RNA sequence: CCAAAAUAUAUUUUGCUAGUUUUGUUGGCUGGUGCGGUCAAGUGGUGAGCUGAGAUCAAAGCCCAGUUUAGGAAACAGGGUUGUUCUCCAUGUGGAUAACUCUGUGCUGAAAACAUGGAGGCAAUC
Numbered sequence: 001c002c003a004a005a006a007u008a009u010a011u012u013u014u015g016c017u018a019g020u021u022u023u024g025u026u027g028g029c030u031g032g033u034g035c036g037g038u039c040a041a042g043u044g045g046u047g048a049g050c051u052g053a054g055a056u057c058a059a060a061g062c063c064c065a066g067u068u069u070a071g072g073a074a075a076c077a078g079g080g081u082u083g084u085u086c087u088c089c090a091u092g093u094g095g096a097u098a099a100c101u102c103u104g105u106g107c108u109g110a111a112a113a114c115a116u117g118g119a120g121g122c123a124a125u126c
Stems, first nucleotide, its partner, number of pairs: 001045003007041001015033005020027001063118003066114004071108002076104006084096003